[Rfam]
RNA sequence: UCCAUGGUGACGUGGAAUCUGAAGGAAGCGAGCGGCAAACCUCCGGUCUGAGGAACACGAACUUCAUAGAAGGCUAGGUGCAAUUGGAUGAGUUUGCUAAACAAAACGAAGUCCUUUCUACCAAAGGUUGCACAAAGUAAAUGAAGCAGAUAGAUGGAGGGAAAGAUUACGUU
Numbered sequence: 001u002c003c004a005u006g007g008u009g010a011c012g013u014g015g016a017a018u019c020u021g022a023a024g025g026a027a028g029c030g031a032g033c034g035g036c037a038a039a040c041c042u043c044c045g046g047u048c049u050g051a052g053g054a055a056c057a058c059g060a061a062c063u064u065c066a067u068a069g070a071a072g073g074c075u076a077g078g079u080g081c082a083a084u085u086g087g088a089u090g091a092g093u094u095u096g097c098u099a100a101a102c103a104a105a106a107c108g109a110a111g112u113c114c115u116u117u118c119u120a121c122c123a124a125a126g127g128u129u130g131c132a133c134a135a136a137g138u139a140a141a142u143g144a145a146g147c148a149g150a151u152a153g154a155u156g157g158a159g160g161g162a163a164a165g166a167u168u169a170c171g172u173u
Base pairs, nucleotide, nucleotide: 001016002015003014004013005012006011028173036165040160041159042158043157044156045155046151047150048149049148050147062146063145064144065143066142067141073138074137075136078133079132080131081130082129083128086114087113088112089111092107093106094105095104
Background:
Group II catalytic intron D1-D4-3: a 173-nucleotide sequence from Virgibacillus necropolis. Rfam 15.1 lists 4,274 matches to the family in 1,585 species. A search with the family's covariance model found it, with a score of 146 bits. NCBI's taxonomy places the organism under Bacteria, Bacillati, Bacilli, Bacillaceae, Virgibacillus.